[Rfam]
RNA sequence: AUGGGCCCACGGGGAAAGCAGCCCCGCAACUUCCCCGCGGCCCAA
Numbered sequence: 001a002u003g004g005g006c007c008c009a010c011g012g013g014g015a016a017a018g019c020a021g022c023c024c025c026g027c028a029a030c031u032u033c034c035c036c037g038c039g040g041c042c043c044a045a
Base pairs, nucleotide, nucleotide: 002044003043004042005041008039010037011036012035013034014033015032016031018030021027022026
RNA: ribosomal frameshift site
Organism: Lentivirus humimdef2